[Rfam]
RNA sequence: GCGAACCUUCGGGGACGGGUGCAAUUCCCGAACCGGCGGUGAUCCGUUCCUACGCGUCUUCGGCAUGCGCCGCGGCUCGCCGGGAUCGGUCAGUCCGUGACCCGCAUGCACUCCCGCGCUGCCCUCCAUCCGAGGAUGCGUGGAGAGCGCAUGCGGCUGACCUGGUGCGAUUCCGGGACCGACAGUAUAGUCUGGAUGGGAGAAGGCUCGC
Numbered sequence: 001g002c003g004a005a006c007c008u009u010c011g012g013g014g015a016c017g018g019g020u021g022c023a024a025u026u027c028c029c030g031a032a033c034c035g036g037c038g039g040u041g042a043u044c045c046g047u048u049c050c051u052a053c054g055c056g057u058c059u060u061c062g063g064c065a066u067g068c069g070c071c072g073c074g075g076c077u078c079g080c081c082g083g084g085a086u087c088g089g090u091c092a093g094u095c096c097g098u099g100a101c102c103c104g105c106a107u108g109c110a111c112u113c114c115c116g117c118g119c120u121g122c123c124c125u126c127c128a129u130c131c132g133a134g135g136a137u138g139c140g141u142g143g144a145g146a147g148c149g150c151a152u153g154c155g156g157c158u159g160a161c162c163u164g165g166u167g168c169g170a171u172u173c174c175g176g177g178a179c180c181g182a183c184a185g186u187a188u189a190g191u192c193u194g195g196a197u198g199g200g201a202g203a204a205g206g207c208u209c210g211c
Base pairs, nucleotide, nucleotide: 003209004208006206007205008204009203010202017029018028019027032191033190034181035180036098037097038096039095102156103155104154105153106152107151108150109149161177162176163175164174165173183194184193185192